The family of this 82-nucleotide RNA from Cricetulus griseus is "mir-3660 microRNA precursor family". Taxonomically the source falls in Cricetulus (Eukaryota, Bilateria, Gnathostomata, Theria). Its family is annotated with miRNA-mediated post-transcriptional gene silencing and RISC complex in the Gene Ontology.

RNA sequence: ACUGGACAAGAUUAAAAUGCUCUUCUGUCACUGUAACAGUUCACAUCGGCUCUGACAGCAGAGCAUUUUAACUUUGUCAAGC
Numbered sequence: 001a002c003u004g005g006a007c008a009a010g011a012u013u014a015a016a017a018u019g020c021u022c023u024u025c026u027g028u029c030a031c032u033g034u035a036a037c038a039g040u041u042c043a044c045a046u047c048g049g050c051u052c053u054g055a056c057a058g059c060a061g062a063g064c065a066u067u068u069u070a071a072c073u074u075u076g077u078c079a080a081g082c
Base pairs, nucleotide, nucleotide: 002081003080005078006077007076008075009074010073012071013070014069015068016067017066018065019064020063021062022061023060025058026057027056028055029054030053033050034049036046